[Rfam]
RNA: mir-9229 microRNA precursor family
Organism: Cnephaeus nilssonii
RNA sequence: GAGACACCCUUAUGAGGCAAGACUUGCUUCAGUGGGGCUUUGGUGCUCACUGAGUCUGCCCCGGGUGUGUCACU
Numbered sequence: 001g002a003g004a005c006a007c008c009c010u011u012a013u014g015a016g017g018c019a020a021g022a023c024u025u026g027c028u029u030c031a032g033u034g035g036g037g038c039u040u041u042g043g044u045g046c047u048c049a050c051u052g053a054g055u056c057u058g059c060c061c062c063g064g065g066u067g068u069g070u071c072a073c074u
Stems, first nucleotide, its partner, number of pairs: 001073001003071005009065003016060004021056003029053008037044002